[Rfam]
RNA sequence: UGGCGCCCAACGUGGGGCUCCAGCACGGGGGAUCCAGUGAAGGAUGCCGUUCGAGUGGCCGGCAGAAAGGAAAGCAAAGGAAAAGAAAAUAAAAGAAAAGAGGGAACGACGUGGGAACCUGCUACGUCUGCACCCCUCGGGUAAGUGAACGGCGAUUAUGGGUCAAGCAUUGAGCCAAGAUAAGGUGUUCGUUGAAGGACUAAAAAGGCUAUCAAGGCACGAGGAGUAAAGGUGAAAAUUAAGCAUUUGUGUCAGUAUUUUGAUUAUAUUAAAGAAGUUUGUCCUU
Numbered sequence: 001u002g003g004c005g006c007c008c009a010a011c012g013u014g015g016g017g018c019u020c021c022a023g024c025a026c027g028g029g030g031g032a033u034c035c036a037g038u039g040a041a042g043g044a045u046g047c048c049g050u051u052c053g054a055g056u057g058g059c060c061g062g063c064a065g066a067a068a069g070g071a072a073a074g075c076a077a078a079g080g081a082a083a084a085g086a087a088a089a090u091a092a093a094a095g096a097a098a099a100g101a102g103g104g105a106a107c108g109a110c111g112u113g114g115g116a117a118c119c120u121g122c123u124a125c126g127u128c129u130g131c132a133c134c135c136c137u138c139g140g141g142u143a144a145g146u147g148a149a150c151g152g153c154g155a156u157u158a159u160g161g162g163u164c165a166a167g168c169a170u171u172g173a174g175c176c177a178a179g180a181u182a183a184g185g186u187g188u189u190c191g192u193u194g195a196a197g198g199a200c201u202a203a204a205a206a207g208g209c210u211a212u213c214a215a216g217g218c219a220c221g222a223g224g225a226g227u228a229a230a231g232g233u234g235a236a237a238a239u240u241a242a243g244c245a246u247u248u249g250u251g252u253c254a255g256u257a258u259u260u261u262g263a264u265u266a267u268a269u270u271a272a273a274g275a276a277g278u279u280u281g282u283c284c285u286u
Base pairs, nucleotide, nucleotide: 006031007030008029012026013025014024100138101137102135103134107130110126111125112124113123114122146165147164148163150162153160154159172212174209175208176207220262221261222260223259224258226256227255230248231247232246233245234244271286272285274283275282

Source information
Mason-Pfizer monkey virus packaging signal: a 286-nucleotide RNA from Molossus molossus. Rfam's curators write: This family represents a group of sequences that are related to the Mason-Pfizer monkey virus (MPMV) packaging signal. The packaging signal is located in the 5' UTR and is required for specific RNA encapsidation. The source organism's lineage runs through Eukaryota, Bilateria, Euteleostomi, Laurasiatheria and Molossus. Rfam 15.1 lists 2,921 matches to the family in 53 species.